[Rfam]
Shown here is a 91-nucleotide RNA sequence from Octodon degus, a member of the family "Small nucleolar SNORD12/SNORD106".
The literature on the family includes a 2003 paper in Nucleic Acids Res by Vitali et al., "Identification of 13 novel human modification guide RNAs".
It is annotated as a C/D-box small nucleolar RNA.
Gene Ontology terms of the family: RNA processing and nucleolus.
It scores 99 bits against the family's covariance model.

RNA sequence: GCUGAUGCAGUUGAUGACCUAACUUUUUUCCCCAUCAGAUCGACCCUGUUGAUCUAAAUAACCAUUAGCCAGUUUAGUCUGAUGCAUCAGC
Numbered sequence: 001g002c003u004g005a006u007g008c009a010g011u012u013g014a015u016g017a018c019c020u021a022a023c024u025u026u027u028u029u030c031c032c033c034a035u036c037a038g039a040u041c042g043a044c045c046c047u048g049u050u051g052a053u054c055u056a057a058a059u060a061a062c063c064a065u066u067a068g069c070c071a072g073u074u075u076a077g078u079c080u081g082a083u084g085c086a087u088c089a090g091c
Stems, first nucleotide, its partner, number of pairs: 001091009
Dot-bracket structure: (((((((((.........................................................................)))))))))